Overview:
The record is a 162-nucleotide RNA from Methylocella silvestris, which matches "speF leader" in Rfam. Taxonomically the source falls in Methylocella silvestris (Bacteria, Pseudomonadota, Hyphomicrobiales, Methylocella). Rfam's curators write: This family is a putative regulatory RNA structure that is found upstream of the speF gene encoding ornithine decarboxylase in Agrobacterium tumefaciens and other alpha-proteobacteria. The literature on the family includes a 2012 paper in RNA Biol by del Val et al., "A survey of sRNA families in alpha-proteobacteria".
RNA sequence: UGUCAGCCUCCACAGCUGGCUUACCGAAGAGGCUUGUCUAUCUUGCCGGGCGUGCGGAGGGGAUUUCCCACUCCAAGCGAAGGCCAUGAACGUUUCGCAAGGCGCCUCUGCGUCCUUUCGGAGCGCGAUUGUCCAACGGCGCAGCAUCAGUGCGACUCGCUC
Number, nucleotide and partner (000 for none) at each position: 001u000002g020003u019004c018005a017006g016007c015008c000009u000010c000011c000012a000013c000014a000015g007016c006017u005018g004019g003020c002021u000022u000023a000024c000025c000026g000027a000028a000029g000030a000031g047032g046033c045034u000035u000036g000037u000038c000039u000040a000041u000042c000043u000044u000045g033046c032047c031048g000049g000050g000051c000052g000053u000054g142055c141056g140057g000058a000059g000060g000061g000062g000063a000064u000065u000066u000067c000068c000069c000070a000071c000072u000073c000074c000075a000076a000077g103078c102079g000080a000081a000082g000083g000084c000085c000086a000087u000088g000089a000090a000091c000092g000093u000094u000095u000096c000097g000098c000099a000100a000101g000102g078103c077104g000105c000106c000107u000108c000109u000110g000111c125112g124113u123114c000115c121116u000117u000118u000119c000120g000121g115122a000123g113124c112125g111126c000127g000128a000129u000130u000131g000132u000133c000134c000135a000136a000137c000138g000139g000140c056141g055142c054143a000144g000145c000146a000147u000148c000149a000150g000151u000152g000153c000154g000155a000156c000157u000158c000159g000160c000161u000162c000